Overview
This 294-nucleotide sequence from Anopheles coluzzii belongs to the Rfam family "Metazoan signal recognition particle RNA". Rfam classes the family as a non-coding RNA gene. Rfam links the family to the GO terms signal recognition particle, endoplasmic reticulum targeting and SRP-dependent cotranslational protein targeting to membrane, signal sequence recognition. The family is grouped with related families in Rfam's "SRP clan". For this family Rfam cites "Structural and energetic analysis of RNA recognition by a universally conserved protein from the signal recognition particle" (Batey et al., J Mol Biol, 2001).

RNA sequence: ACCGGGAGCGUGGCGUCUCCUGUAACGCGGCUACUCGUGGGUCGGAUUACGGACUGAUUUGAGGGCGGGAGUCCUGUGUGCUGGACCAGGCCAUGUUGACGGGGCGUCCGCACUAAGCUGGCCGUCAAUAUGGGUGUCACGGAGGAGUCCGAGACAUUCAGGUUGGCUAAGGAGAGACACACCGAGCGAGGGGUGAAAACCAGCAGCUAAGAGUCUCCGCGGCAAGCAGUAGUGGGAUCGCGUCCCGGAGUGGACUGCCAGUGCCAGCCCGACCAAUAAAGUCACACUGUAAUC
Number, nucleotide and partner (000 for none) at each position: 001a042002c041003c040004g021005g020006g019007a018008g017009c000010g000011u000012g000013g000014c000015g000016u000017c008018u007019c006020c005021u004022g000023u000024a000025a000026c039027g038028c037029g000030g000031c000032u000033a000034c000035u000036c000037g028038u027039g026040g003041g002042u001043c000044g000045g294046a293047u292048u291049a290050c289051g288052g287053a000054c000055u284056g283057a282058u281059u280060u279061g000062a000063g274064g273065g000066c271067g270068g269069g268070a000071g000072u000073c000074c267075u266076g265077u000078g264079u263080g262081c261082u260083g000084g000085a000086c000087c257088a256089g255090g000091c253092c252093a251094u250095g000096u248097u000098g000099a000100c247101g246102g245103g244104g243105c242106g241107u240108c236109c235110g000111c234112a233113c232114u231115a230116a000117g227118c226119u225120g000121g223122c222123c221124g220125u219126c165127a164128a163129u162130a000131u160132g159133g158134g157135u156136g155137u154138c153139a000140c151141g150142g149143a148144g000145g000146a000147g000148u143149c142150c141151g140152a000153g138154a137155c136156a135157u134158u133159c132160a131161g000162g129163u128164u127165g126166g000167c171168u000169a000170a000171g167172g000173a000174g217175a216176g215177a214178c213179a000180c000181a000182c000183c000184g000185a208186g207187c206188g000189a000190g000191g000192g201193g200194u199195g000196a000197a000198a000199a194200c193201c192202a000203g000204c000205a000206g187207c186208u185209a000210a000211g000212a000213g178214u177215c176216u175217c174218c000219g125220c124221g123222g122223c121224a000225a119226g118227c117228a000229g000230u115231a114232g113233u112234g111235g109236g108237a000238u000239c000240g107241c106242g105243u104244c103245c102246c101247g100248g096249a000250g094251u093252g092253g091254a000255c089256u088257g087258c000259c000260a082261g081262u080263g079264c078265c076266a075267g074268c069269c068270c067271g066272a000273c064274c063275a000276a000277u000278a000279a060280a059281g058282u057283c056284a055285c000286a000287c052288u051289g050290u049291a048292a047293u046294c045